[Rfam]
RNA sequence: CUUCCGCCCUCCCCGCACAGGAGGACGGAUCGAGGUAAGACGCGCGUUCUGCCCUGACCGCGCGAACACCUCCCCAAACGGCUGCCGGGCACCGCACACCCGCCGGCCGUAAGUACUCCGGGCUACGGUGCCGACGGGCUGAGGGUCCCGCUCGGCAC
Numbered sequence: 001c002u003u004c005c006g007c008c009c010u011c012c013c014c015g016c017a018c019a020g021g022a023g024g025a026c027g028g029a030u031c032g033a034g035g036u037a038a039g040a041c042g043c044g045c046g047u048u049c050u051g052c053c054c055u056g057a058c059c060g061c062g063c064g065a066a067c068a069c070c071u072c073c074c075c076a077a078a079c080g081g082c083u084g085c086c087g088g089g090c091a092c093c094g095c096a097c098a099c100c101c102g103c104c105g106g107c108c109g110u111a112a113g114u115a116c117u118c119c120g121g122g123c124u125a126c127g128g129u130g131c132c133g134a135c136g137g138g139c140u141g142a143g144g145g146u147c148c149c150g151c152u153c154g155g156c157a158c
Stems, first nucleotide, its partner, number of pairs: 003029004008024005032072005041064002044061002047056001078110007088101002114130004120124001133153002135150004
RNA: Streptomyces sRNA scr5239